A member of the RNA family "Manganese Mn2+ riboswitch aptamer (yybP-ykoY)" from Brevundimonas naejangsanensis, 181 nucleotides long.
The literature on the family includes a 2001 paper in Curr Biol by Argaman et al., "Novel small RNA-encoding genes in the intergenic regions of Escherichia coli".
The organism belongs to Brevundimonas, within Bacteria.
Rfam 15.1 lists 1,126 matches to the family in 1,062 species.
About the family: This RNA was originally discovered in E. coli during a large scale screen and was named SraF. The family was later found to exist upstream of related families of protein genes in many bacteria, including the the yybP and ykoK genes in B. subtilis. The specific functions of these proteins are unknown, but this structured RNA element may be involved in their genetic regulation as a riboswitch.
The base pairs follow the family's consensus structure.
RNA sequence: CUAGAGGGGCGGCCGUUGGGGAGUAGCUUCCGGCAUAUCCCAGUCGGGAUCGCGUCAACAUACUUGCCUUAAGGGCAUGGCGCGAUCAGCGGAUUUUGUUCCGCCUAGCGAGACCAGCAUGCUGCACACGUGGGGCCGGCCCGCGCGUGGAGCGUGCUGUCGUACGCCCGGCCGAGUUCCC
Number, nucleotide and partner (000 for none) at each position: 001c000002u000003a000004g000005a000006g000007g000008g000009g000010c000011g000012g000013c000014c000015g000016u000017u000018g000019g000020g000021g000022a000023g000024u000025a000026g000027c000028u000029u000030c000031c046032g045033g044034c000035a000036u000037a000038u000039c000040c000041c000042a000043g000044u033045c032046g031047g000048g087049a086050u085051c084052g083053c082054g081055u080056c079057a078058a000059c000060a000061u000062a000063c000064u000065u077066g076067c075068c074069u073070u000071a000072a000073g069074g068075g067076c066077a065078u057079g056080g055081c054082g053083c052084g051085a050086u049087c048088a000089g000090c000091g180092g179093a178094u000095u000096u000097u000098g000099u000100u000101c000102c000103g000104c000105c000106u000107a000108g000109c000110g000111a000112g000113a000114c000115c000116a000117g000118c000119a000120u000121g000122c000123u000124g000125c000126a000127c000128a000129c000130g000131u000132g000133g000134g000135g000136c000137c000138g000139g000140c000141c000142c000143g000144c000145g000146c000147g000148u000149g000150g000151a000152g000153c000154g000155u000156g000157c000158u000159g000160u000161c000162g000163u000164a000165c000166g000167c000168c000169c000170g000171g000172c000173c000174g000175a000176g000177u000178u093179c092180c091181c000